[Rfam]
RNA: miR-430 microRNA precursor family
RNA sequence: AUGAUAACCUUUACAAAAACACUAACUUUGUUCCAAUUAUAGUAAGUGCUUUUGUUGGAGUAGUUUUG
Number, nucleotide and partner (000 for none) at each position: 001a000002u000003g000004a064005u063006a000007a061008c060009c000010u058011u057012u000013a055014c054015a053016a052017a051018a050019a000020c048021a047022c046023u045024a000025a043026c042027u041028u000029u000030g000031u000032u000033c000034c000035a000036a000037u000038u000039a000040u000041a027042g026043u025044a000045a023046g022047u021048g020049c000050u018051u017052u016053u015054g014055u013056u000057g011058g010059a000060g008061u007062a000063g005064u004065u000066u000067u000068g000